A member of the RNA family "radC RNA" from Rhizobium subbaraonis, 152 nucleotides long. The family's RNA type in Rfam is cis-regulatory element. The match comes from Rfam's covariance-model search (83 bits). NCBI's taxonomy places the organism under Bacteria, Pseudomonadati, Pseudomonadota, Rhizobiaceae, Rhizobium.
RNA sequence: AUUCUCGCCGCAUGUUCGCUGGCGUCGCCGGCAACAUCCCAGGCAGUCGAGACCUUGAAGACUGCGGCGCGGCUCGCCGUUCCGGUCAUUUUCCUCACAGGGCAUUGAGCCCGAUUUUCCAACCCUCAAGGGAUCACCUCCCUUGCGGACGG
Numbered sequence: 001a002u003u004c005u006c007g008c009c010g011c012a013u014g015u016u017c018g019c020u021g022g023c024g025u026c027g028c029c030g031g032c033a034a035c036a037u038c039c040c041a042g043g044c045a046g047u048c049g050a051g052a053c054c055u056u057g058a059a060g061a062c063u064g065c066g067g068c069g070c071g072g073c074u075c076g077c078c079g080u081u082c083c084g085g086u087c088a089u090u091u092u093c094c095u096c097a098c099a100g101g102g103c104a105u106u107g108a109g110c111c112c113g114a115u116u117u118u119c120c121a122a123c124c125c126u127c128a129a130g131g132g133a134u135c136a137c138c139u140c141c142c143u144u145g146c147g148g149a150c151g152g
Base pairs, nucleotide, nucleotide: 012037013036014035015033018032019031020030021029022028023027043065044064045063046062047061048060051087052086053085054084066083067082069080070079071078072077119152120151127145128144129143130142131141132140133139